[Rfam]
RNA: Coronavirus packaging signal
Organism: Betacoronavirus muris
RNA sequence: AUGUUAUCUUCAGCCGUACAGGGAGCCUUGAACCGAGCCAUUACCGGAGCCCACAAGGUAAUCCGGGUGGUAAUCGCGUGGGUGAUCUCAGCGGUAAUGAAGCUCUA
Numbered sequence: 001a002u003g004u005u006a007u008c009u010u011c012a013g014c015c016g017u018a019c020a021g022g023g024a025g026c027c028u029u030g031a032a033c034c035g036a037g038c039c040a041u042u043a044c045c046g047g048a049g050c051c052c053a054c055a056a057g058g059u060a061a062u063c064c065g066g067g068u069g070g071u072a073a074u075c076g077c078g079u080g081g082g083u084g085a086u087c088u089c090a091g092c093g094g095u096a097a098u099g100a101a102g103c104u105c106u107a
Base pairs, nucleotide, nucleotide: 008102009101010100011099012098014094015093016092021089022088023087024086026082027081034076035075036074038070039069040068044066045065046064047063048062050058051057